[Rfam]
RNA: Small nucleolar RNA SNORD21
RNA sequence: GCUAUGUGAUGAUACCCCAAUGUCUGACCACUCCGUAGUAGGUCCAUGGUGUGUAAAUGAUGGACUGCGUAGUUUCAAGACGGGACUGAUGGCAGC
Numbered sequence: 001g002c003u004a005u006g007u008g009a010u011g012a013u014a015c016c017c018c019a020a021u022g023u024c025u026g027a028c029c030a031c032u033c034c035g036u037a038g039u040a041g042g043u044c045c046a047u048g049g050u051g052u053g054u055a056a057a058u059g060a061u062g063g064a065c066u067g068c069g070u071a072g073u074u075u076c077a078a079g080a081c082g083g084g085a086c087u088g089a090u091g092g093c094a095g096c
Base pairs, nucleotide, nucleotide: 001093002092003091004090